c-di-AMP riboswitch aptamer (ydaO/yuaA leader): a 231-nucleotide RNA sequence from Arthrobacter glacialis. A search with the family's covariance model found it, with a score of 49 bits.

[Rfam]
RNA sequence: CACAACGGACAGCAAUCAUUUAGGCAAGGGCGGGGGAACCACUUUCGGCAGGCUUGCAGCCUGCCUUGGGGUGAAGCCCGUCAUCGAAAACACAGCAAACUAUUCGCUGACACUGUCCUUUUGGGCAGUGCCUUGGAUAGAUCUGUGUCUCGAGGCUGGGCCGGAUCAAAAGUUUCACUCUCUGAUCCGAAUCCGACAGCUAACUCCGCAGGUGCAUCAAAGAGAGGUUUU
Numbered sequence: 001c002a003c004a005a006c007g008g009a010c011a012g013c014a015a016u017c018a019u020u021u022a023g024g025c026a027a028g029g030g031c032g033g034g035g036g037a038a039c040c041a042c043u044u045u046c047g048g049c050a051g052g053c054u055u056g057c058a059g060c061c062u063g064c065c066u067u068g069g070g071g072u073g074a075a076g077c078c079c080g081u082c083a084u085c086g087a088a089a090a091c092a093c094a095g096c097a098a099a100c101u102a103u104u105c106g107c108u109g110a111c112a113c114u115g116u117c118c119u120u121u122u123g124g125g126c127a128g129u130g131c132c133u134u135g136g137a138u139a140g141a142u143c144u145g146u147g148u149c150u151c152g153a154g155g156c157u158g159g160g161c162c163g164g165a166u167c168a169a170a171a172g173u174u175u176c177a178c179u180c181u182c183u184g185a186u187c188c189g190a191a192u193c194c195g196a197c198a199g200c201u202a203a204c205u206c207c208g209c210a211g212g213u214g215c216a217u218c219a220a221a222g223a224g225a226g227g228u229u230u231u
Base pairs, nucleotide, nucleotide: 030209031208032207033206034205035204040068041067069194070193071192077160078159079158080157163188164187165186166185167184168183
The source organism's lineage runs through Bacteria, Actinomycetes, Micrococcales, Micrococcaceae and Arthrobacter.